A member of the RNA family "Mammalian CPEB3 ribozyme" from Crocodylus porosus, 77 nucleotides long. The match comes from Rfam's covariance-model search (39 bits). The source organism's lineage runs through Eukaryota, Gnathostomata, Archosauria, Crocodylia and Crocodylus. A reference for the family is Salehi-Ashtiani et al. (2006), "A genomewide search for ribozymes reveals an HDV-like sequence in the human CPEB3 gene", Science.
RNA sequence: AGUCACAAGUUUGAGGCCAUAGCAGACGUGUUCAUGGCACAGCCCUGUCAGAAUCCAAUGAAUGUGCACAUUUUGCU
Numbered sequence: 001a002g003u004c005a006c007a008a009g010u011u012u013g014a015g016g017c018c019a020u021a022g023c024a025g026a027c028g029u030g031u032u033c034a035u036g037g038c039a040c041a042g043c044c045c046u047g048u049c050a051g052a053a054u055c056c057a058a059u060g061a062a063u064g065u066g067c068a069c070a071u072u073u074u075g076c077u
Base pairs, nucleotide, nucleotide: 013045015044016043017042021077022076023075024074025073026072028040029039030038049066050065052063054061055060